[Rfam]
RNA sequence: CGAACCGUGCCGGGAGAGUCUGCCGCGCGCCGGCAGCGCCGAAGGAGCAAGACCCCUCCCCGGGAAUCUCUCAGGCCCCAGUACCGCCACGGUGAG
Numbered sequence: 001c002g003a004a005c006c007g008u009g010c011c012g013g014g015a016g017a018g019u020c021u022g023c024c025g026c027g028c029g030c031c032g033g034c035a036g037c038g039c040c041g042a043a044g045g046a047g048c049a050a051g052a053c054c055c056c057u058c059c060c061c062g063g064g065a066a067u068c069u070c071u072c073a074g075g076c077c078c079c080a081g082u083a084c085c086g087c088c089a090c091g092g093u094g095a096g
Stems, first nucleotide, its partner, number of pairs: 006091004011086003020036004038076003041072002045070003053063002
RNA: Glycine riboswitch aptamer